[Rfam]
RNA sequence: GGCUGCCGCCCCCUGUAACAGCAACUCCAUGUGGAAGUGCUCGCUGGUUCCAGUGGGGUUGCUGUUAUCGGGUGCGGGGGC
Numbered sequence: 001g002g003c004u005g006c007c008g009c010c011c012c013c014u015g016u017a018a019c020a021g022c023a024a025c026u027c028c029a030u031g032u033g034g035a036a037g038u039g040c041u042c043g044c045u046g047g048u049u050c051c052a053g054u055g056g057g058g059u060u061g062c063u064g065u066u067a068u069c070g071g072g073u074g075c076g077g078g079g080g081c
Stems, first nucleotide, its partner, number of pairs: 009074001011072001015068008025058006032052003

Rfam assigns this 81-nucleotide sequence from Carlito syrichta to the family "mir-194 microRNA precursor family". On this family, see Lagos-Quintana et al., RNA 2003: "New microRNAs from mouse and human". Rfam 15.1 lists 936 matches to the family in 630 species. Lineage of the source: Eukaryota > Chordata > Gnathostomata > Teleostomi > Carlito. It scores 69 bits against the family's covariance model. Gene Ontology terms of the family: miRNA-mediated post-transcriptional gene silencing and RISC complex.